[Rfam]
RNA sequence: AUUCUGGUUGAUCCUGCCAGAGGCCGCUGCUAUCCGGCUGGGACUAAGCCAUGCGAGUCAAGGGGCUUGUAUCCCUUCGGGGAUGCAAGCACCGGCGGACGGCUCAGUAACACGUGGACAACCUGCCCUCGGGUGGGGGAUAACCCCGGGAAACUGGGGCUAAUCCCCCAUAGGGGAUGGGUACUGGAAUGUCCCAUCUCCGAAAGCGCUUAGCGCCCGAGGAUGGGUCUGCGGCGGAUUAGGUUGUUGGUGGGGUAACGGCCCACCAAGCCGAAGAUCCGUACGGGCCAUGAGAGUGGGAGCCCGGAGAUGGACCCUGAGACACGGGUCCAGGCCCUACGGGGCGCAGCAGGCGCGAAACCUCCGCAAUGCGGGAAACCGCGACGGGGUCAGCCGGAGUGCUCGCGCAUCGCGCGGGCUGUCGGGGUGCCUAAAAAGCACCCCACAGCAAGGGCCGGGCAAGGCCGGUGGCAGCCGCCGCGGUAAUACCGGCGGCCCGAGUGGCGGCCACUUUUAUUG
Numbered sequence: 001a002u003u004c005u006g007g008u009u010g011a012u013c014c015u016g017c018c019a020g021a022g023g024c025c026g027c028u029g030c031u032a033u034c035c036g037g038c039u040g041g042g043a044c045u046a047a048g049c050c051a052u053g054c055g056a057g058u059c060a061a062g063g064g065g066c067u068u069g070u071a072u073c074c075c076u077u078c079g080g081g082g083a084u085g086c087a088a089g090c091a092c093c094g095g096c097g098g099a100c101g102g103c104u105c106a107g108u109a110a111c112a113c114g115u116g117g118a119c120a121a122c123c124u125g126c127c128c129u130c131g132g133g134u135g136g137g138g139g140a141u142a143a144c145c146c147c148g149g150g151a152a153a154c155u156g157g158g159g160c161u162a163a164u165c166c167c168c169c170a171u172a173g174g175g176g177a178u179g180g181g182u183a184c185u186g187g188a189a190u191g192u193c194c195c196a197u198c199u200c201c202g203a204a205a206g207c208g209c210u211u212a213g214c215g216c217c218c219g220a221g222g223a224u225g226g227g228u229c230u231g232c233g234g235c236g237g238a239u240u241a242g243g244u245u246g247u248u249g250g251u252g253g254g255g256u257a258a259c260g261g262c263c264c265a266c267c268a269a270g271c272c273g274a275a276g277a278u279c280c281g282u283a284c285g286g287g288c289c290a291u292g293a294g295a296g297u298g299g300g301a302g303c304c305c306g307g308a309g310a311u312g313g314a315c316c317c318u319g320a321g322a323c324a325c326g327g328g329u330c331c332a333g334g335c336c337c338u339a340c341g342g343g344g345c346g347c348a349g350c351a352g353g354c355g356c357g358a359a360a361c362c363u364c365c366g367c368a369a370u371g372c373g374g375g376a377a378a379c380c381g382c383g384a385c386g387g388g389g390u391c392a393g394c395c396g397g398a399g400u401g402c403u404c405g406c407g408c409a410u411c412g413c414g415c416g417g418g419c420u421g422u423c424g425g426g427g428u429g430c431c432u433a434a435a436a437a438g439c440a441c442c443c444c445a446c447a448g449c450a451a452g453g454g455c456c457g458g459g460c461a462a463g464g465c466c467g468g469u470g471g472c473a474g475c476c477g478c479c480g481c482g483g484u485a486a487u488a489c490c491g492g493c494g495g496c497c498c499g500a501g502u503g504g505c506g507g508c509c510a511c512u513u514u515u516a517u518u519g
Stems, first nucleotide, its partner, number of pairs: 004020005022509010033398009042356001048354003052351003057096003062093002072083004103309003113233007122226002127222007135169004144159006174200008183192002206214002235281003242272003247269008284306004288299004311332006334345004362388001364387003370383005401419008423448001424444007452498006465492004474481002
Overview:
This 519-nucleotide part of an RNA from Archaeoglobus fulgidus belongs to the Rfam family "Archaeal small subunit ribosomal RNA". For this family Rfam cites "Crystal structure of the ribosome at 5.5 A resolution" (Yusupov et al., Science, 2001). Gene Ontology terms of the family: structural constituent of ribosome and ribosome. Clan: SSU clan. Pairs were carried over by alignment from the consensus structure, which is taken from published work. Taxonomically the source falls in Archaeoglobus fulgidus (Archaea, Methanobacteriati, Archaeoglobi, Archaeoglobales).